[Rfam]
Nucleotides: 370
Stems, first nucleotide, its partner, number of pairs: 001366010011355001012321007020031004036353003040350005045207004053253002058203005063077005078092001079090004093198002098196002100192003115138001117134003121130003146164005165187001166185008211278004221269005244260005285304008
Number, partner (000 for none) and nucleotide at each position: 001366g002365c003364g004363g005362a006361u007360g008359g009358c010357u011355g012321g013320a014319u015318g016317g017316c018315u019000g020031c021030a022029c023028g024000u025000u026000u027000a028023c029022g030021u031020g032000a033000g034000g035000a036353a037352a038351g039000u040350c041349c042348g043347g044346a045207c046206a047205c048204c049000a050000c051000a052000a053253g054252g055000c056000a057000a058203c059202g060201g061200c062199g063077g064076c065075g066074g067073g068000u069000a070000a071000c072000g073067c074066c075065c076064g077063c078092c079090u080089g081088g082087g083000g084000u085000a086000a087082c088081c089080c090079a091000a092078g093198g094197g095000a096000a097000a098196g099195c100192g101191c102190c103000a104000c105000a106000g107000a108000g109000a110000a111000a112000a113000g114000a115138c116000a117134g118133c119132c120000c121130g122129c123128g124000u125000u126000u127000a128123c129122g130121c131000a132119g133118g134117u135000c136000a137000a138115g139000g140000u141000g142000a143000a144000a145000c146164g147163g148162u149161g150160g151000a152000g153000u154000a155000a156000g157000a158000g159000c160150c161149c162148a163147c164146c165187g166185c167184g168183g169182u170181g171180g172179u173178g174000g175000u176000a177000a178173c179172a180171u181170c182169a183168c184167u185166g186000g187165c188000a189000a190102g191101g192100c193000a194000a195099g196098c197094c198093c199062c200061g201060c202059c203058g204048g205047g206046u207045g208000c209000a210000a211278a212277a213276c214275c215000a216000a217000a218000u219000a220000g221269g222268g223267a224266u225265c226000g227000c228000g229000u230000g231000g232000c233000c234000g235000c236000g237000u238000g239000c240000g241000g242000u243000c244260g245259g246258g247257g248256u249000u250000g251000c252054u253053u254000u255000g256248g257247c258246c259245c260244c261000a262000g263000c264000a265225g266224a267223u268222c269221c270000g271000g272000g273000u274000u275214g276213g277212u278211u279000g280000c281000a282000a283000g284000a285304g286303c287302c288301u289300g290299u291298u292297g293000g294000c295000a296000a297292c298291a299290g300289c301288a302287g303286g304285c305000c306000c307000a308000g309000a310000u311000g312000a313000a314000u315018g316017g317016u318015c319014a320013u321012c322000a323000a324000c325000g326000g327000g328000c329000g330000c331000a332000a333000g334000c335000c336000c337000u338000g339000a340000a341000c342000a343000a344000a345000a346044u347043c348042c349041g350040g351038c352037u353036u354000a355011u356000a357010g358009g359008c360007c361006a362005u363004c364003c365002g366001c367000a368000a369000a370000a